Record summary: Rfam assigns this 77-nucleotide RNA from Gopherus evgoodei to the family "mir-190 microRNA precursor family". Taxonomically the source falls in Gopherus (Eukaryota, Bilateria, Sauropsida, Testudinoidea). The base pairs follow the family's consensus structure, which was predicted with RNAalifold. For this family Rfam cites "Cloning and expression of new microRNAs from zebrafish" (Kloosterman et al., Nucleic Acids Res, 2006).

[Rfam]
RNA sequence: GCUGCUGGCUGAUAUGUUUGAUAUUAGGUUGUUUUAUUGGAAAACCAACUAAAUAUCAAACAUAUUCUUCCGGCGCC
Numbered sequence: 001g002c003u004g005c006u007g008g009c010u011g012a013u014a015u016g017u018u019u020g021a022u023a024u025u026a027g028g029u030u031g032u033u034u035u036a037u038u039g040g041a042a043a044a045c046c047a048a049c050u051a052a053a054u055a056u057c058a059a060a061c062a063u064a065u066u067c068u069u070c071c072g073g074c075g076c077c
Base pairs, nucleotide, nucleotide: 005073006072007071008070011066012065013064014063015062016061017060018059019058020057021056022055023054024053025052027050028049029048030047031046

Background
Rfam 15.1 lists 1,667 matches to the family in 854 species.